[Rfam]
RNA sequence: CCUGGCCGCAUGUCAAUCGGACACGACGGUAUAGUCAACUCGGGGAUUUUUCCGAUUUCUCCCCGGGGCCAACGAAACGGCAGACGAGGGCUUGUCCCGUCUGCGGU
Numbered sequence: 001c002c003u004g005g006c007c008g009c010a011u012g013u014c015a016a017u018c019g020g021a022c023a024c025g026a027c028g029g030u031a032u033a034g035u036c037a038a039c040u041c042g043g044g045g046a047u048u049u050u051u052c053c054g055a056u057u058u059c060u061c062c063c064c065g066g067g068g069c070c071a072a073c074g075a076a077a078c079g080g081c082a083g084a085c086g087a088g089g090g091c092u093u094g095u096c097c098c099g100u101c102u103g104c105g106g107u
Base pairs, nucleotide, nucleotide: 006106007105008104009103011023012022013021014020025101026100027099028097029096033092034091035090036089039067040066041065042064043063044062045061068081069080070079
The record is a 107-nucleotide sequence from Pseudooceanicola nanhaiensis, which matches "Rhizobiales sRNA Atu_At1" in Rfam. It is annotated as a small RNA.